[Rfam]
RNA sequence: GUACUCUGGUUUCUCUUCACAACGAAUAAAUCUUUCGCCUUUUACUAAAGAUUUCCGUGGAGAGGAGCAAUAUAAUGAGUCUAUAGACUAUUUUUCAAGCCCUACUUUGUAGGGU
Numbered sequence: 001g002u003a004c005u006c007u008g009g010u011u012u013c014u015c016u017u018c019a020c021a022a023c024g025a026a027u028a029a030a031u032c033u034u035u036c037g038c039c040u041u042u043u044a045c046u047a048a049a050g051a052u053u054u055c056c057g058u059g060g061a062g063a064g065g066a067g068c069a070a071u072a073u074a075a076u077g078a079g080u081c082u083a084u085a086g087a088c089u090a091u092u093u094u095u096c097a098a099g100c101c102c103u104a105c106u107u108u109g110u111a112g113g114g115u
Base pairs, nucleotide, nucleotide: 003080004079005078006077009068010067011066012065013064014063015062016061017060018059019058028054029053030052031051032050033049034048035047098115100114101113102112103111104110105109